[Rfam]
RNA sequence: CCUGUUGUUCUACGAACAGAAGUCUAAGUUGUACAUACAAUGGAGUGAUCCUAUGUAUGAAGCUAUCAUGGCAAUGUCUACAGUUUGAAAGAGAUAUCGUGUAAAAAAACAGAAACAGAAACCCAAUAAAAAUCUCUAUUGAUAAACUA
Number, nucleotide and partner (000 for none) at each position: 001c000002c019003u018004g017005u016006u015007g000008u000009u000010c000011u000012a000013c000014g000015a006016a005017c004018a003019g002020a000021a000022g000023u000024c000025u000026a000027a000028g000029u068030u000031g066032u065033a064034c059035a058036u057037a056038c055039a054040a000041u000042g051043g050044a049045g000046u000047g000048a000049u044050c043051c042052u000053a000054u039055g038056u037057a036058u035059g034060a000061a000062g000063c000064u033065a032066u031067c000068a029069u000070g000071g000072c000073a000074a000075u000076g000077u000078c000079u000080a000081c099082a000083g097084u096085u000086u094087g000088a000089a000090a000091g000092a000093g000094a086095u000096a084097u083098c000099g081100u117101g116102u115103a000104a000105a000106a000107a000108a000109a000110c000111a000112g000113a000114a000115a102116c101117a100118g000119a000120a000121a000122c000123c000124c141125a140126a139127u138128a137129a000130a000131a000132a000133u000134c000135u000136c000137u128138a127139u126140u125141g124142a000143u000144a000145a000146a000147c000148u000149a000
Shown here is a 149-nucleotide RNA sequence from Orientia tsutsugamushi, a member of the family "Group II catalytic intron D1-D4-7". The family has 244 seed sequences and 1,296 matches in Rfam 15.1. Group II introns are found in rRNA, tRNA and mRNA of organelles in fungi, plants and protists, and also in mRNA in bacteria. For this family Rfam cites "Control of branch-site choice by a group II intron" (Chu et al., EMBO J, 2001). Pairs were carried over by alignment from the consensus structure.